[Rfam]
RNA sequence: UCGCCCACAAUGCCUUUCAACGGUUUCAACACGGAUGUGGUUCGACGUGCCAAGUGUGAGCGGACACGAAGCAUCGAGAGCCGGUCGGCUUUGCCGAAUCCCUUCGGGGGCAUCUUUGUUGGAGCCGUUGCCAACGGGAGUACUACGUUGGUCGGUUCCUUCAUUGGUCUCCUCGCGCUAACCCCGUAGCGUGUGGUUUUUAGCGGGCCGCUGGCCCGCUUUUUUUU
Numbered sequence: 001u002c003g004c005c006c007a008c009a010a011u012g013c014c015u016u017u018c019a020a021c022g023g024u025u026u027c028a029a030c031a032c033g034g035a036u037g038u039g040g041u042u043c044g045a046c047g048u049g050c051c052a053a054g055u056g057u058g059a060g061c062g063g064a065c066a067c068g069a070a071g072c073a074u075c076g077a078g079a080g081c082c083g084g085u086c087g088g089c090u091u092u093g094c095c096g097a098a099u100c101c102c103u104u105c106g107g108g109g110g111c112a113u114c115u116u117u118g119u120u121g122g123a124g125c126c127g128u129u130g131c132c133a134a135c136g137g138g139a140g141u142a143c144u145a146c147g148u149u150g151g152u153c154g155g156u157u158c159c160u161u162c163a164u165u166g167g168u169c170u171c172c173u174c175g176c177g178c179u180a181a182c183c184c185c186g187u188a189g190c191g192u193g194u195g196g197u198u199u200u201u202a203g204c205g206g207g208c209c210g211c212u213g214g215c216c217c218g219c220u221u222u223u224u225u226u227u
Base pairs, nucleotide, nucleotide: 005167006166007165019129020128021127022126023125024124025123026122027121028120029119030118031117033115034114035113036112037111038110039082040081041080047074048073049072050071054067055066056065057064085097086096087095088094089093100109101108102107131151132150133149134148135147171196172195174193175192176191177190178189179188180187202220203219204218205217206216207215208214209213
The record is a 227-nucleotide sequence from Trinickia fusca, which matches "Burkholderia sRNA Bp1_Cand871_SIPHT" in Rfam. NCBI's taxonomy places the organism under Bacteria, Pseudomonadati, Betaproteobacteria, Burkholderiales, Trinickia. It is annotated as a small RNA.